[Rfam]
RNA sequence: CUAUUACCAAACCCUAUCUCUACCUCCACGUGGUGACGGCUGGGAGGUCUUUCUUAACGAAAAACUGUAGACGGAGAAGG
Dot-bracket structure: ............(((.(.((.(((.......)))...........(((.((((.....)))).)))......)).).)))
A member of the RNA family "drz-agam-1 ribozyme" from Hermetia illucens, 80 nucleotides long. It scores 45 bits against the family's covariance model. The family's consensus secondary structure is taken from published work.